Background: The family of this 174-nucleotide RNA sequence from Nostoc sp. ATCC 43529 is "Nitrogen stress-induced RNA 8".
RNA sequence: AUAGUAAUUUGAAUAGCUAUAAUUCAAAUGCAAAGAAUCUAGUAAGUUACGAUUCUUUAUACUGAUAUUAUUUGCUAGCUUUUCAACCUAUUGGCUUUUAUUUGUGCUAUUUUUUCUACACUCCAAGGUGUGCUGCCACUUUCAAGCUAUUGAGGCGGGAUAAAUCAUCCCGUC
Numbered sequence: 001a002u003a004g005u006a007a008u009u010u011g012a013a014u015a016g017c018u019a020u021a022a023u024u025c026a027a028a029u030g031c032a033a034a035g036a037a038u039c040u041a042g043u044a045a046g047u048u049a050c051g052a053u054u055c056u057u058u059a060u061a062c063u064g065a066u067a068u069u070a071u072u073u074g075c076u077a078g079c080u081u082u083u084c085a086a087c088c089u090a091u092u093g094g095c096u097u098u099u100a101u102u103u104g105u106g107c108u109a110u111u112u113u114u115u116c117u118a119c120a121c122u123c124c125a126a127g128g129u130g131u132g133c134u135g136c137c138a139c140u141u142u143c144a145a146g147c148u149a150u151u152g153a154g155g156c157g158g159g160a161u162a163a164a165u166c167a168u169c170c171c172g173u174c
Stems, first nucleotide, its partner, number of pairs: 001110006009086003013082001015080003019071005028060002032058004037053003118151001120148001122146001125142006154174008